A member of the RNA family "Bacterial large subunit ribosomal RNA" from Reinekea forsetii, 152 nucleotides of a longer RNA. It scores 2870 bits against the family's covariance model. For this family Rfam cites "Crystal structure of the ribosome at 5.5 A resolution" (Yusupov et al., Science, 2001). Lineage of the source: Bacteria > Pseudomonadati > Pseudomonadota > Oceanospirillales > Reinekea.
[Rfam]
RNA sequence: AGUGGGAGCCCCAUCACAAAGCGACUUUGCGGAGUCCUUUGGUCUGAUGGCUAAAGGAAACAUUGGCGAAGCGCAGCUUCGCGAAUGCAACCGGCAAAGCAGGCAGUGAGGCCGCUUUGUGAUGGGGUGACUGCGUACCUUUUGUAUAAUGG
Numbered sequence: 001a002g003u004g005g006g007a008g009c010c011c012c013a014u015c016a017c018a019a020a021g022c023g024a025c026u027u028u029g030c031g032g033a034g035u036c037c038u039u040u041g042g043u044c045u046g047a048u049g050g051c052u053a054a055a056g057g058a059a060a061c062a063u064u065g066g067c068g069a070a071g072c073g074c075a076g077c078u079u080c081g082c083g084a085a086u087g088c089a090a091c092c093g094g095c096a097a098a099g100c101a102g103g104c105a106g107u108g109a110g111g112c113c114g115c116u117u118u119g120u121g122a123u124g125g126g127g128u129g130a131c132u133g134c135g136u137a138c139c140u141u142u143u144g145u146a147u148a149a150u151g152g
Stems, first nucleotide, its partner, number of pairs: 002134004008128016138151001140149001